[Rfam]
RNA sequence: GGUAGUAAGUUUGAGGCCGUAGCAGAAGUGCUCAUGGCAUGGCCCUGUCAUAUUCCAGUGAAUCUGCAAAUUCUGGU
Number, nucleotide and partner (000 for none) at each position: 001g000002g000003u000004a000005g000006u000007a000008a000009g000010u000011u000012u000013g045014a000015g044016g043017c042018c041019g000020u000021a077022g000023c075024a074025g073026a072027a071028g040029u039030g038031c000032u000033c000034a000035u000036g000037g000038c030039a029040u028041g018042g017043c016044c015045c013046u000047g000048u000049c066050a065051u000052a063053u062054u061055c060056c000057a000058g000059u000060g055061a054062a053063u052064c000065u050066g049067c000068a000069a000070a000071u027072u026073c025074u024075g023076g000077u021
RNA: Mammalian CPEB3 ribozyme
Organism: Crocodylus porosus